[Rfam]
RNA sequence: CGAUCCGAGGAGCGUUGCAGCACCGCACGGUGUGAGGCUCGGAACCUACAGCAACGACGCUCACCCACU
Numbered sequence: 001c002g003a004u005c006c007g008a009g010g011a012g013c014g015u016u017g018c019a020g021c022a023c024c025g026c027a028c029g030g031u032g033u034g035a036g037g038c039u040c041g042g043a044a045c046c047u048a049c050a051g052c053a054a055c056g057a058c059g060c061u062c063a064c065c066c067a068c069u
Base pairs, nucleotide, nucleotide: 002045004043005042006041007040008039021032022031023030024029